RNA sequence: AUAGAAAUCAAUGUUGUCACUUUUGCAUUUCAUUUUGUAUGUUUUUCUUCUACAGCUCUCUUUUAUUGGAGAAAAAAAGUGGAUUCUGUUCUUGUCAAUCAAAGGGAGUUGUAGGGGAAAAACAUAGAAAAUGCAGAGU
Numbered sequence: 001a002u003a004g005a006a007a008u009c010a011a012u013g014u015u016g017u018c019a020c021u022u023u024u025g026c027a028u029u030u031c032a033u034u035u036u037g038u039a040u041g042u043u044u045u046u047c048u049u050c051u052a053c054a055g056c057u058c059u060c061u062u063u064u065a066u067u068g069g070a071g072a073a074a075a076a077a078a079g080u081g082g083a084u085u086c087u088g089u090u091c092u093u094g095u096c097a098a099u100c101a102a103a104g105g106g107a108g109u110u111g112u113a114g115g116g117g118a119a120a121a122a123c124a125u126a127g128a129a130a131a132u133g134c135a136g137a138g139u
Stems, first nucleotide, its partner, number of pairs: 045119019065099003069096002072093002077090002081086001